[Rfam]
Shown here is an 80-nucleotide RNA sequence from Pipistrellus kuhlii, a member of the family "mir-9186 microRNA precursor family".
RNA sequence: UAGGGGGAGAUUGGCUGCAUCACUGGUACUGAGGUAAUGGCUACCCACAGUACGAGACAUGCAGCCCCCCUCCCCCUACA
Numbered sequence: 001u002a003g004g005g006g007g008a009g010a011u012u013g014g015c016u017g018c019a020u021c022a023c024u025g026g027u028a029c030u031g032a033g034g035u036a037a038u039g040g041c042u043a044c045c046c047a048c049a050g051u052a053c054g055a056g057a058c059a060u061g062c063a064g065c066c067c068c069c070c071u072c073c074c075c076c077u078a079c080a
Base pairs, nucleotide, nucleotide: 001078002077003076004075005074007072008071009070013066014065015064016063017062018061019060020059023056024055026053027052028051029050030049031048
Its family is annotated with RISC complex and miRNA-mediated post-transcriptional gene silencing in the Gene Ontology.